[Rfam]
Nucleotides: 095
Base pairs, nucleotide, nucleotide: 002090003089004088005087006086007085012079013078014077015076017075018074019073020072025071026070
Number, partner (000 for none) and nucleotide at each position: 001000g002090c003089g004088g005087a006086g007085g008000u009000u010000u011000a012079g013078c014077u015076c016000a017075g018074g019073g020072g021000u022000u023000a024000c025071u026070u027000c028000a029000c030000a031000g032000c033000u034000u035000g036000u037000u038000a039000c040000c041000a042000c043000c044000u045000a046000a047000a048000u049000g050000a051000u052000c053000c054000g055000c056000g057000g058000g059000u060000c061000a062000c063000a064000g065000g066000u067000u068000c069000c070026a071025a072020c073019c074018c075017c076015g077014g078013g079012c080000g081000c082000c083000g084000c085007c086006c087005u088004c089003c090002g091000u092000u093000u094000u095000g